[Rfam]
RNA sequence: UAGCCAUGAUGUGGGCAAGUUAGCAACAAUUCUUUAAAACGUUCCCAACACUGAAAAAAUGUUUCAUUUUUCUUUUGAGAAAAAUUCAUAAUAUUUCUGCGAAG
Numbered sequence: 001u002a003g004c005c006a007u008g009a010u011g012u013g014g015g016c017a018a019g020u021u022a023g024c025a026a027c028a029a030u031u032c033u034u035u036a037a038a039a040c041g042u043u044c045c046c047a048a049c050a051c052u053g054a055a056a057a058a059a060u061g062u063u064u065c066a067u068u069u070u071u072c073u074u075u076u077g078a079g080a081a082a083a084a085u086u087c088a089u090a091a092u093a094u095u096u097c098u099g100c101g102a103a104g
Stems, first nucleotide, its partner, number of pairs: 001104001004101001005099002057074002
Plant small nucleolar RNA R71: a 104-nucleotide RNA sequence from Carya illinoinensis. A reference for the family is Brown et al. (2003), "Plant snoRNAs: functional evolution and new modes of gene expression", Trends Plant Sci. Its family is annotated with nucleolus and RNA processing in the Gene Ontology. The base pairs follow the family's consensus structure, which was predicted with PFOLD. The family has 25 seed sequences and 278,378 matches in Rfam 15.1.